RNA: sroC RNA
Organism: Sodalis sp. TME1
RNA sequence: ACUAAUAACGAUAAUAAGGGCGGGAUUGCCCGCCCUACUGAUUGCUGACCAAAGGCCCGGACAGACAGACGCGCUAAGGCCGUUCCCCGAAGCGCGGCAAGAGGGGGCCAUUCAUCAAUCUUCAGGGUAGCGCUCGCUACCCUUUUUUACCGGAGUUUU
Numbered sequence: 001a002c003u004a005a006u007a008a009c010g011a012u013a014a015u016a017a018g019g020g021c022g023g024g025a026u027u028g029c030c031c032g033c034c035c036u037a038c039u040g041a042u043u044g045c046u047g048a049c050c051a052a053a054g055g056c057c058c059g060g061a062c063a064g065a066c067a068g069a070c071g072c073g074c075u076a077a078g079g080c081c082g083u084u085c086c087c088c089g090a091a092g093c094g095c096g097g098c099a100a101g102a103g104g105g106g107g108c109c110a111u112u113c114a115u116c117a118a119u120c121u122u123c124a125g126g127g128u129a130g131c132g133c134u135c136g137c138u139a140c141c142c143u144u145u146u147u148u149a150c151c152g153g154a155g156u157u158u159u
Base pairs, nucleotide, nucleotide: 013157014156018035019034020033021032022030023029036126038125039124040123041119042118043117044116047113048112056105057104058103060098062096071095072094073093074092075091078088079087